[Rfam]
RNA: U11 spliceosomal RNA
RNA sequence: AAAAAGGGUCGGUUGGCUAAAUAUGCCACUCUCGCCUGAAUGGUGAGUGCUGUAUGGCUAUCAAGACAUAUGGCCGACAUAAUUUCUGGGAUUUUCAUAGGGUUGUCUCGUUGGUCGACCCUCCA
Numbered sequence: 001a002a003a004a005a006g007g008g009u010c011g012g013u014u015g016g017c018u019a020a021a022u023a024u025g026c027c028a029c030u031c032u033c034g035c036c037u038g039a040a041u042g043g044u045g046a047g048u049g050c051u052g053u054a055u056g057g058c059u060a061u062c063a064a065g066a067c068a069u070a071u072g073g074c075c076g077a078c079a080u081a082a083u084u085u086c087u088g089g090g091a092u093u094u095u096c097a098u099a100g101g102g103u104u105g106u107c108u109c110g111u112u113g114g115u116c117g118a119c120c121c122u123c124c125a
Base pairs, nucleotide, nucleotide: 008078009077010076011075012074014028015027016026017025029049031047032046033045034044035043036042050073051072052071053070054069055068056067101120102119103118104117105116108114109113